The record is a 124-nucleotide sequence from Caldanaerobacter subterraneus, which matches "ylbH leader" in Rfam.
The family's RNA type in Rfam is cis-regulatory leader.
Its family is annotated with regulation of gene expression in the Gene Ontology.
The match comes from Rfam's covariance-model search (58 bits).
The literature on the family includes a 2004 paper in Proc Natl Acad Sci U S A by Barrick et al., "New RNA motifs suggest an expanded scope for riboswitches in bacterial genetic control".

RNA sequence: UUGGAAAUAAGGGAGGCCUAAAAAGGCUUCCCUUUUUAAAUUUUUAAUCCAGGCAGGAGUUCGCCUGCCUGGACUGGGAGAGGAGAAAUUGAAGGAAGAAUUGGGGAAAUUUCUAUUCCCGUUA
Numbered sequence: 001u002u003g004g005a006a007a008u009a010a011g012g013g014a015g016g017c018c019u020a021a022a023a024a025g026g027c028u029u030c031c032c033u034u035u036u037u038a039a040a041u042u043u044u045u046a047a048u049c050c051a052g053g054c055a056g057g058a059g060u061u062c063g064c065c066u067g068c069c070u071g072g073a074c075u076g077g078g079a080g081a082g083g084a085g086a087a088a089u090u091g092a093a094g095g096a097a098g099a100a101u102u103g104g105g106g107a108a109a110u111u112u113c114u115a116u117u118c119c120c121g122u123u124a
Stems, first nucleotide, its partner, number of pairs: 011032009048078005053068005090121002095118003100114001
Rfam's curators write: This family is a putative regulatory RNA structure that is found upstream of the ylbH gene in B. subtilis and related low GC Gram-positive bacteria.